[Rfam]
RNA sequence: CAUGCCCGGGAUCGCCCCCCACCAGCGAGUUUCGCCCGUGGGGGCGUUUAUG
Numbered sequence: 001c002a003u004g005c006c007c008g009g010g011a012u013c014g015c016c017c018c019c020c021a022c023c024a025g026c027g028a029g030u031u032u033c034g035c036c037c038g039u040g041g042g043g044g045c046g047u048u049u050a051u052g
Stems, first nucleotide, its partner, number of pairs: 016044007025035004
RNA: ffh sRNA
Organism: Roseovarius indicus